[Rfam]
RNA sequence: GAUUUAUAAAGAAGAGGCGAGAGAAUAGGCUCCUGGACCCUCUGGCAACCAUCAGAAAAGUUGAAAGGUGCCAAUUCCUAUCCCAAAUGGGGAAAUAUAAAUU
Numbered sequence: 001g002a003u004u005u006a007u008a009a010a011g012a013a014g015a016g017g018c019g020a021g022a023g024a025a026u027a028g029g030c031u032c033c034u035g036g037a038c039c040c041u042c043u044g045g046c047a048a049c050c051a052u053c054a055g056a057a058a059a060g061u062u063g064a065a066a067g068g069u070g071c072c073a074a075u076u077c078c079u080a081u082c083c084c085a086a087a088u089g090g091g092g093a094a095a096u097a098u099a100a101a102u103u
Stems, first nucleotide, its partner, number of pairs: 001103008013043005021032003026080004044072004049068002052064003076095001081092004
RNA: SAM riboswitch aptamer (S box leader)